[Rfam]
RNA sequence: AUUUCGGUUUGACUACCACAUUUUCUCCUAAUAAUAGAUUUUAGUGGUUAUGCUUAUGGGGUAGAUUAAAAGUGCCAUGAUCGAAGUAGGACUUAUUUGUAUCCCCUCCUAUAUGAAAUGGCUGAAUAGAAAAUA
Numbered sequence: 001a002u003u004u005c006g007g008u009u010u011g012a013c014u015a016c017c018a019c020a021u022u023u024u025c026u027c028c029u030a031a032u033a034a035u036a037g038a039u040u041u042u043a044g045u046g047g048u049u050a051u052g053c054u055u056a057u058g059g060g061g062u063a064g065a066u067u068a069a070a071a072g073u074g075c076c077a078u079g080a081u082c083g084a085a086g087u088a089g090g091a092c093u094u095a096u097u098u099g100u101a102u103c104c105c106c107u108c109c110u111a112u113a114u115g116a117a118a119u120g121g122c123u124g125a126a127u128a129g130a131a132a133a134u135a
Stems, first nucleotide, its partner, number of pairs: 004060002007057001016047004074122004088110004
Small nucleolar RNA SNORA29: a 135-nucleotide sequence from Cnephaeus nilssonii. The family's RNA type in Rfam is H/ACA-box small nucleolar RNA. The organism belongs to Cnephaeus, within Eukaryota. Pairs were carried over by alignment from the consensus structure, which was predicted with PFOLD. Its Rfam clan is "SNORA20 clan". ACA29 is a member of the H/ACA class of snoRNA that guide the sites of modification of uridines to pseudouridines.